[Rfam]
RNA sequence: GCGAUGAGCUGAUUUGCAUAAGUCGAGCGACACGCCUUUGGCAAUACACUAUGUGGAGUGUAGUCACUCGCCGCAAUACGCAAAAAGACGUCCCUCGGGACGUCUU
Numbered sequence: 001g002c003g004a005u006g007a008g009c010u011g012a013u014u015u016g017c018a019u020a021a022g023u024c025g026a027g028c029g030a031c032a033c034g035c036c037u038u039u040g041g042c043a044a045u046a047c048a049c050u051a052u053g054u055g056g057a058g059u060g061u062a063g064u065c066a067c068u069c070g071c072c073g074c075a076a077u078a079c080g081c082a083a084a085a086a087g088a089c090g091u092c093c094c095u096c097g098g099g100a101c102g103u104c105u106u
Stems, first nucleotide, its partner, number of pairs: 014076004024070004029065003034042002045062002048059003085106009
BsrF: a 106-nucleotide RNA sequence from Anaerobacillus isosaccharinicus. Rfam classes the family as a small RNA.